[Rfam]
RNA: Small nucleolar RNA SNORD22
Organism: Sorex araneus
RNA sequence: UCCCCAUGAAGAAACUCUCACAUGUCUUACCACCUGUCCUAGUCCCAGAGCCUGCAAAGGUGAACCCACUGGGACUGGCUGGGGGAAAAGAGGCAAGCUUGUUCCAGCAGGAACUGUCUGAGGGAU
Numbered sequence: 001u002c003c004c005c006a007u008g009a010a011g012a013a014a015c016u017c018u019c020a021c022a023u024g025u026c027u028u029a030c031c032a033c034c035u036g037u038c039c040u041a042g043u044c045c046c047a048g049a050g051c052c053u054g055c056a057a058a059g060g061u062g063a064a065c066c067c068a069c070u071g072g073g074a075c076u077g078g079c080u081g082g083g084g085g086a087a088a089a090g091a092g093g094c095a096a097g098c099u100u101g102u103u104c105c106a107g108c109a110g111g112a113a114c115u116g117u118c119u120g121a122g123g124g125a126u
Stems, first nucleotide, its partner, number of pairs: 001125004